[Rfam]
RNA sequence: CUGAUGGCGGCGUUUGGGUGGAAAUCGGAAUCGAUCGCCCAAUUCCCCUCCGCACCGGAGGCAGGUACUCGGUGGGGCAGCGCCUUAACGUCAG
Numbered sequence: 001c002u003g004a005u006g007g008c009g010g011c012g013u014u015u016g017g018g019u020g021g022a023a024a025u026c027g028g029a030a031u032c033g034a035u036c037g038c039c040c041a042a043u044u045c046c047c048c049u050c051c052g053c054a055c056c057g058g059a060g061g062c063a064g065g066u067a068c069u070c071g072g073u074g075g076g077g078c079a080g081c082g083c084c085u086u087a088a089c090g091u092c093a094g
Stems, first nucleotide, its partner, number of pairs: 001094005009084005015041004024035004045077004050072003
Background
This 94-nucleotide RNA sequence belongs to the Rfam family "L4-Archaeoglobi ribosomal protein leades". Pairs were carried over by alignment from the consensus structure, which is taken from published work. On this family, see Eckert and Weinberg, BMC Microbiol 2020: "Discovery of 20 novel ribosomal leader candidates in bacteria and archaea".